RNA sequence: CUUUAGCCCCGAUGGAAGCGGCAUCCUUUUUUUCAUUUCACCCUGUUAGGGUUUCGAACCCUAACAGGGUGAAAUGAAAAAAAGAUAUAGCGUACAGCGGGAACGUUG
Numbered sequence: 001c002u003u004u005a006g007c008c009c010c011g012a013u014g015g016a017a018g019c020g021g022c023a024u025c026c027u028u029u030u031u032u033u034c035a036u037u038u039c040a041c042c043c044u045g046u047u048a049g050g051g052u053u054u055c056g057a058a059c060c061c062u063a064a065c066a067g068g069g070u071g072a073a074a075u076g077a078a079a080a081a082a083a084g085a086u087a088u089a090g091c092g093u094a095c096a097g098c099g100g101g102a103a104c105g106u107u108g
Base pairs, nucleotide, nucleotide: 009100010099011098013096014095018091019090023086024085025084029081030080031079032078033077034076035075036074037073038072039071040070041069042068043067044066045065046064047063048062049061050060051059052058053057
Rfam assigns this 108-nucleotide RNA to the family "Flavo-1 RNA".
The family has 201 seed sequences and 7,497 matches in Rfam 15.1.
The match comes from Rfam's covariance-model search (71 bits).